[Rfam]
RNA: GAIT element
Organism: Equus asinus
RNA sequence: GUGUGUGAAAGUGAAUAGAACGUUGACUUUGGAAUGGCUAGAAGCAUUAAAACAAGACUGAAAACACAC
Numbered sequence: 001g002u003g004u005g006u007g008a009a010a011g012u013g014a015a016u017a018g019a020a021c022g023u024u025g026a027c028u029u030u031g032g033a034a035u036g037g038c039u040a041g042a043a044g045c046a047u048u049a050a051a052a053c054a055a056g057a058c059u060g061a062a063a064a065c066a067c068a069c
Stems, first nucleotide, its partner, number of pairs: 001069006010059003019048002022045003030040003